[Rfam]
RNA: tRNA
RNA sequence: CGGGAUGUAGCGCAGUUUGGUAGCGCACAUGUAUGGGGUGCAUGGGGCCGAAGGUUCAAAUCCUUUCAUCCCGA
Numbered sequence: 001c002g003g004g005a006u007g008u009a010g011c012g013c014a015g016u017u018u019g020g021u022a023g024c025g026c027a028c029a030u031g032u033a034u035g036g037g038g039u040g041c042a043u044g045g046g047g048c049c050g051a052a053g054g055u056u057c058a059a060a061u062c063c064u065u066u067c068a069u070c071c072c073g074a
Stems, first nucleotide, its partner, number of pairs: 001073007010026004028044005050066005